[Rfam]
RNA sequence: CAAUGAAGGAAACACAAUAAUGUGCACAUAAAUUGAAUUGGGCCUCUAGACCUGCCUUUUCUGAUGUCAUUUGGUUUUGAUUUAAGGGUAUGGUUCUGCAGCAAAACA
Numbered sequence: 001c002a003a004u005g006a007a008g009g010a011a012a013c014a015c016a017a018u019a020a021u022g023u024g025c026a027c028a029u030a031a032a033u034u035g036a037a038u039u040g041g042g043c044c045u046c047u048a049g050a051c052c053u054g055c056c057u058u059u060u061c062u063g064a065u066g067u068c069a070u071u072u073g074g075u076u077u078u079g080a081u082u083u084a085a086g087g088g089u090a091u092g093g094u095u096c097u098g099c100a101g102c103a104a105a106a107c108a
Stems, first nucleotide, its partner, number of pairs: 013024003040091001042089003050081001052079001054075003
The record is a 108-nucleotide RNA from Rhododendron simsii, which matches "Small nucleolar RNA snoR100" in Rfam. On this family, see Marker et al., Curr Biol 2002: "Experimental RNomics: identification of 140 candidates for small non-messenger RNAs in the plant Arabidopsis thaliana". Gene Ontology terms of the family: nucleolus and RNA processing. The source organism's lineage runs through Eukaryota, Viridiplantae, Magnoliopsida, Ericoideae and Rhododendron. It scores 68 bits against the family's covariance model.